[Rfam]
The family of this 80-nucleotide RNA sequence from Medicago truncatula is "Small nucleolar RNA R12". snoR12 is a C/D box small nucleolar RNA, which acts as a methylation guide for 25S ribosomal RNA in plants. snoR12 has been alternatively named snoZ44 in Arabidopsis and snoZ131 in rice. A reference for the family is Chen et al. (2003), "The high diversity of snoRNAs in plants: identification and comparative study of 120 snoRNA genes from Oryza sativa", Nucleic Acids Res. Pairs were carried over by alignment from the consensus structure, which was predicted with PFOLD. Taxonomically the source falls in Medicago (Eukaryota, Tracheophyta, Spermatophyta, Trifolieae). Rfam links the family to the GO terms RNA processing and nucleolus.
RNA sequence: UGUUGAAUGAUGAAAAAAUUGACGGAUUAUUACUGAUAUUAUUCAUAUAUGAUAAUCUUAAUCAGCUACUUCUGACUACA
Numbered sequence: 001u002g003u004u005g006a007a008u009g010a011u012g013a014a015a016a017a018a019u020u021g022a023c024g025g026a027u028u029a030u031u032a033c034u035g036a037u038a039u040u041a042u043u044c045a046u047a048u049a050u051g052a053u054a055a056u057c058u059u060a061a062u063c064a065g066c067u068a069c070u071u072c073u074g075a076c077u078a079c080a
Stems, first nucleotide, its partner, number of pairs: 001080003005076001
Dot-bracket structure: (((.(......................................................................).)))